[Rfam]
RNA: tRNA
Organism: Elstera cyanobacteriorum
RNA sequence: GGGUACAUAGCUCAGUUGGUAGAGCAGCUGACUCUUAAUCAGCGGGUCCAAGGUUCGAGUCCUUGUGUACCCA
Numbered sequence: 001g002g003g004u005a006c007a008u009a010g011c012u013c014a015g016u017u018g019g020u021a022g023a024g025c026a027g028c029u030g031a032c033u034c035u036u037a038a039u040c041a042g043c044g045g046g047u048c049c050a051a052g053g054u055u056c057g058a059g060u061c062c063u064u065g066u067g068u069a070c071c072c073a
Base pairs, nucleotide, nucleotide: 001072002071003070004069005068006067007066010025011024012023013022027043028042029041030040031039049065050064051063052062053061